This 154-nucleotide sequence from Amborella trichopoda belongs to the Rfam family "MIR8565 microRNA precursor family". Lineage of the source: Eukaryota > Streptophyta > Streptophytina > Embryophyta > Amborella.
RNA sequence: CCCCCACCUAUGUGUGUAGGACCCUAAAGGAUCACCAUUAAAGUUGGCACGGAUCUCUAAAAGAGUUAUCACAUGGGUGUGGAACUUGACUUUUCUAUAAAUCCGUAUAAAAUUUAAUGGUGAUCCUUUGGGGUCCUACACACAUAGGUGGGGG
Numbered sequence: 001c002c003c004c005c006a007c008c009u010a011u012g013u014g015u016g017u018a019g020g021a022c023c024c025u026a027a028a029g030g031a032u033c034a035c036c037a038u039u040a041a042a043g044u045u046g047g048c049a050c051g052g053a054u055c056u057c058u059a060a061a062a063g064a065g066u067u068a069u070c071a072c073a074u075g076g077g078u079g080u081g082g083a084a085c086u087u088g089a090c091u092u093u094u095c096u097a098u099a100a101a102u103c104c105g106u107a108u109a110a111a112a113u114u115u116a117a118u119g120g121u122g123a124u125c126c127u128u129u130g131g132g133g134u135c136c137u138a139c140a141c142a143c144a145u146a147g148g149u150g151g152g153g154g
Base pairs, nucleotide, nucleotide: 002153003152004151005150006149007148008147009146010145011144012143013142015140016139017138018137019136020135021134022133023132024131025130026129027128028127030125031124032123034121035120036119037118038117039116040115041114042113044111045110047108049106050105051104052103053102054101056099058097059096061094062093063092064091065090066089067088068087069082070081071080072079073078